The record is an 82-nucleotide RNA from Rhodoferax sp., which matches "SAH (S-adenosyl-L-homocysteine) riboswitch aptamer" in Rfam. The organism belongs to Rhodoferax, within Bacteria. The base pairs follow the family's consensus structure, which is taken from published work.

RNA sequence: GCACCCAAGGAGCGUUGCAGCAGUCGCCGAUCGACUGUCAGGCUUGGAUGGCUGUUCUCUCUGACAACCACGCUCACCUGAA
Dot-bracket structure: .((.((((............((((((.....))))))......)))).))................................